Notes:
Shown here is a 149-nucleotide RNA sequence from Ureibacillus yapensis, a member of the family "Ribosomal protein L20 leader". On this family, see Zengel and Lindahl, Prog Nucleic Acid Res Mol Biol 1994: "Diverse mechanisms for regulating ribosomal protein synthesis in Escherichia coli". NCBI's taxonomy places the organism under Bacteria, Bacillati, Bacillota, Bacilli, Ureibacillus. The base pairs follow the family's consensus structure, which was predicted with CMfinder.
RNA sequence: UGGUUGAAGUAGAGGCUGCCCGCUUCUCACCUGAAUGACGCUUUUGCAGUUGACAGGUAUAGACACGUUGAAUUUAUUGCGCUGACUAUGAGCGUAUGUAAUAUAUAGCGGGCGGACAUCUUCUGAAAUGUCCGCCUUUUUUUUAUGGA
Numbered sequence: 001u002g003g004u005u006g007a008a009g010u011a012g013a014g015g016c017u018g019c020c021c022g023c024u025u026c027u028c029a030c031c032u033g034a035a036u037g038a039c040g041c042u043u044u045u046g047c048a049g050u051u052g053a054c055a056g057g058u059a060u061a062g063a064c065a066c067g068u069u070g071a072a073u074u075u076a077u078u079g080c081g082c083u084g085a086c087u088a089u090g091a092g093c094g095u096a097u098g099u100a101a102u103a104u105a106u107a108g109c110g111g112g113c114g115g116a117c118a119u120c121u122u123c124u125g126a127a128a129u130g131u132c133c134g135c136c137u138u139u140u141u142u143u144u145a146u147g148g149a
Base pairs, nucleotide, nucleotide: 011027012026013025014024015023016022029058030057031056037051038050039049040047041046111136112135113134114133115132116131117130118129119128

It is annotated as a cis-regulatory leader. Rfam describes the family as follows. This family is a putative r-protein leader autoregulatory structure found in B. subtilis and other low-GC Gram-positive bacteria. It is located in the 5' untranslated regions of mRNAs encoding initiation factor 3 followed by ribosomal proteins L35 and L20 (infC-rpmI-rplT). A Rho-independent transcription terminator structure that is probably involved in regulation is included at the 3' end.